[Rfam]
RNA sequence: UCGCCUUAAACUAAUGAGUAAGGAAAACAAAGCGGGCGGUGAGAGCUGCCCGCCGCGCUGUUACACCUAGUGUGCGCACGAAUAUUUGGAUGGGUGAUAGGCUGGCCGAUCGUUGACGCUGCUUACUUCGCAGAACUCGCUCGUGCGGGCCUCCCA
Number, nucleotide and partner (000 for none) at each position: 001u000002c000003g000004c023005c022006u021007u020008a019009a000010a000011c000012u000013a000014a000015u000016g000017a000018g000019u008020a007021a006022g005023g004024a000025a000026a000027a000028c000029a000030a000031a000032g053033c052034g051035g050036g049037c048038g047039g046040u000041g000042a000043g000044a000045g000046c039047u038048g037049c036050c035051c034052g033053c032054c076055g075056c074057g073058c072059u000060g000061u000062u000063a000064c000065a000066c000067c000068u000069a000070g000071u000072g058073u057074g056075c055076g054077c000078a000079c000080g000081a000082a000083u000084a000085u000086u000087u000088g000089g000090a000091u156092g155093g154094g153095u000096g000097a000098u000099a152100g151101g150102c149103u148104g000105g146106c000107c143108g142109a000110u000111c139112g138113u000114u000115g000116a000117c000118g000119c133120u132121g131122c130123u000124u000125a000126c000127u000128u000129c000130g122131c121132a120133g119134a000135a000136c000137u000138c112139g111140c000141u000142c108143g107144u000145g000146c105147g000148g103149g102150c101151c100152u099153c094154c093155c092156a091
RNA: U12 minor spliceosomal RNA
Organism: Musa acuminata